[Rfam]
RNA sequence: CCGUGCUAGACGGGGAGUUGGCGGUGCCCUGCACCCGCAAUCCGCCAUAGCGGGGUCGAACUCCCCCUUGCGGGCUGGCCUGUGGGCCUCUGGGCCCCUCUGGAGGGCGUGGAAGGUCGGGUCCUGCGCGGCAGAGGACUGCGAACCCCGCCAGGCCCGGAAGGGAGCAACGGUAAGCAGAUACCCUGUGCGCCGUAGGGGUGCCUGGCUGGAGCCGUCCAGGGGCCUAAGCCCGUGAGCCACGCUCAAGAGGGGGUGCACGG
Numbered sequence: 001c002c003g004u005g006c007u008a009g010a011c012g013g014g015g016a017g018u019u020g021g022c023g024g025u026g027c028c029c030u031g032c033a034c035c036c037g038c039a040a041u042c043c044g045c046c047a048u049a050g051c052g053g054g055g056u057c058g059a060a061c062u063c064c065c066c067c068u069u070g071c072g073g074g075c076u077g078g079c080c081u082g083u084g085g086g087c088c089u090c091u092g093g094g095c096c097c098c099u100c101u102g103g104a105g106g107g108c109g110u111g112g113a114a115g116g117u118c119g120g121g122u123c124c125u126g127c128g129c130g131g132c133a134g135a136g137g138a139c140u141g142c143g144a145a146c147c148c149c150g151c152c153a154g155g156c157c158c159g160g161a162a163g164g165g166a167g168c169a170a171c172g173g174u175a176a177g178c179a180g181a182u183a184c185c186c187u188g189u190g191c192g193c194c195g196u197a198g199g200g201g202u203g204c205c206u207g208g209c210u211g212g213a214g215c216c217g218u219c220c221a222g223g224g225g226c227c228u229a230a231g232c233c234c235g236u237g238a239g240c241c242a243c244g245c246u247c248a249a250g251a252g253g254g255g256g257u258g259c260a261c262g263g
Base pairs, nucleotide, nucleotide: 001263002262003261004260005259006258009057010056011055012030013029014028015027017025018024019023034054035053036052037051038050063256064255065254066253067252068251069250072247073246074245075244078240079239081237082236083235084234085233086232087231091229092228094226095225096224097223098222099221102219103218106216107215108214115210116209117208118207119206120205121204122203123199124198125197126196127195128194129190130189132188133187134186136184137182139180140179141178142177148173149172150171156165157164158163
Shown here is a 263-nucleotide sequence from bacterium HR23, a member of the family "Bacterial large signal recognition particle RNA". Rfam classes the family as a non-coding RNA gene.